Overview:
Shown here is a 59-nucleotide RNA sequence from Sphingomonas sanxanigenens, a member of the family "terC RNA". Rfam 15.1 lists 1,112 matches to the family in 772 species.
[Rfam]
RNA sequence: CUUGCGGACCGGGCCCCUCUGGCGGCGGCGCUACGCUACCGUCAUGUCGGACCGCAUCG
Numbered sequence: 001c002u003u004g005c006g007g008a009c010c011g012g013g014c015c016c017c018u019c020u021g022g023c024g025g026c027g028g029c030g031c032u033a034c035g036c037u038a039c040c041g042u043c044a045u046g047u048c049g050g051a052c053c054g055c056a057u058c059g
Base pairs, nucleotide, nucleotide: 006053007052009050010049011048012047022042023041024040025039027037028036029035

Description
By type it is a cis-regulatory element. Lineage of the source: Bacteria > Pseudomonadati > Sphingomonadaceae > Sphingomonas > Sphingomonas sanxanigenens. A search with the family's covariance model found it, with a score of 58 bits.